Overview:
Rfam assigns this 83-nucleotide RNA sequence from Leptolyngbya sp. BL0902 to the family "Glutamine riboswitch aptamer (glnA leader)".
RNA sequence: AACGUUCAUCUGGGCUUCCCUAGGACGGCACUGCCCCCUAAGCCUAGACGGAAGUAAGGAGCUGUCUCCUGAAGGAACGCGCC
Numbered sequence: 001a002a003c004g005u006u007c008a009u010c011u012g013g014g015c016u017u018c019c020c021u022a023g024g025a026c027g028g029c030a031c032u033g034c035c036c037c038c039u040a041a042g043c044c045u046a047g048a049c050g051g052a053a054g055u056a057a058g059g060a061g062c063u064g065u066c067u068c069c070u071g072a073a074g075g076a077a078c079g080c081g082c083c
Stems, first nucleotide, its partner, number of pairs: 003079005009048009051080001057070005
NCBI's taxonomy places the organism under Bacteria, Cyanobacteriota, Cyanophyceae, Leptolyngbyales, Leptolyngbya.